[Rfam]
RNA: Nuclear RNase P
Organism: Mycena sanguinolenta
RNA sequence: ACAGCCUCAAAGCCGCGAUGCUCGUUCCACACAGGACUCUCCGUCCAUUUCCGAGCGGGAAGGUCUGAGGAUUCUAGUUCCCUUGAUUGGUUCCAGAGGGACCCGGCUGUAACCGCCGAGCGACACACAAGACAUACGUCUGCAUCUCUUUGUCCCGAAGAUCUCUCGAGGGAGGGUGAAUGGGAAUGCGGGCUUGGAAUAUGUCGCGGGACCGGGUGGUUUUUUGUUCUUUGACUCCUACUCUGCAUCUUUAUCGCGCUAGACCUAAGUGGCCACUUCGUGGCUGCCGGGCGCUGCAUGAGGAAAAUAAACCCGUGGAUUGUCUGUCGUCGAGCACCCGUGCUCCGCCGCGGGGGCGCGCCCACCCAUGCUGUACCAUUUAUCGUGAAGGCGAUCGAUGGCAGUGCUUGCGUGUCGAUGCGCUCAUUUUCGAGAGAAGAUGGGUCCACUAGCCCGGCGCGGACGUGGCAGGCGUACGAGGGGAGGCAGAGGCUCAUGGAGCAGAGACGAUUCACCAUCCUUUAGUGCACUUUGCGGCACACGGCGCUCGUGCACGAGACGCCGUGCAACUCGAUUCAGACUACUCUGAGGCUGU
Numbered sequence: 001a002c003a004g005c006c007u008c009a010a011a012g013c014c015g016c017g018a019u020g021c022u023c024g025u026u027c028c029a030c031a032c033a034g035g036a037c038u039c040u041c042c043g044u045c046c047a048u049u050u051c052c053g054a055g056c057g058g059g060a061a062g063g064u065c066u067g068a069g070g071a072u073u074c075u076a077g078u079u080c081c082c083u084u085g086a087u088u089g090g091u092u093c094c095a096g097a098g099g100g101a102c103c104c105g106g107c108u109g110u111a112a113c114c115g116c117c118g119a120g121c122g123a124c125a126c127a128c129a130a131g132a133c134a135u136a137c138g139u140c141u142g143c144a145u146c147u148c149u150u151u152g153u154c155c156c157g158a159a160g161a162u163c164u165c166u167c168g169a170g171g172g173a174g175g176g177u178g179a180a181u182g183g184g185a186a187u188g189c190g191g192g193c194u195u196g197g198a199a200u201a202u203g204u205c206g207c208g209g210g211a212c213c214g215g216g217u218g219g220u221u222u223u224u225u226g227u228u229c230u231u232u233g234a235c236u237c238c239u240a241c242u243c244u245g246c247a248u249c250u251u252u253a254u255c256g257c258g259c260u261a262g263a264c265c266u267a268a269g270u271g272g273c274c275a276c277u278u279c280g281u282g283g284c285u286g287c288c289g290g291g292c293g294c295u296g297c298a299u300g301a302g303g304a305a306a307a308u309a310a311a312c313c314c315g316u317g318g319a320u321u322g323u324c325u326g327u328c329g330u331c332g333a334g335c336a337c338c339c340g341u342g343c344u345c346c347g348c349c350g351c352g353g354g355g356g357c358g359c360g361c362c363c364a365c366c367c368a369u370g371c372u373g374u375a376c377c378a379u380u381u382a383u384c385g386u387g388a389a390g391g392c393g394a395u396c397g398a399u400g401g402c403a404g405u406g407c408u409u410g411c412g413u414g415u416c417g418a419u420g421c422g423c424u425c426a427u428u429u430u431c432g433a434g435a436g437a438a439g440a441u442g443g444g445u446c447c448a449c450u451a452g453c454c455c456g457g458c459g460c461g462g463a464c465g466u467g468g469c470a471g472g473c474g475u476a477c478g479a480g481g482g483g484a485g486g487c488a489g490a491g492g493c494u495c496a497u498g499g500a501g502c503a504g505a506g507a508c509g510a511u512u513c514a515c516c517a518u519c520c521u522u523u524a525g526u527g528c529a530c531u532u533u534g535c536g537g538c539a540c541a542c543g544g545c546g547c548u549c550g551u552g553c554a555c556g557a558g559a560c561g562c563c564g565u566g567c568a569a570c571u572c573g574a575u576u577c578a579g580a581c582u583a584c585u586c587u588g589a590g591g592c593u594g595u
Base pairs, nucleotide, nucleotide: 001595002594003593004592007589008588009587012538013537014536015535016534017533018532020056021055022054023053024052034046035045036044037043065579066578067577068576069575079211080210081209082208089103090102091101092100093099104118105117106116107115120207121206122205123204124203125202140192141191540566541565542564543563544562545561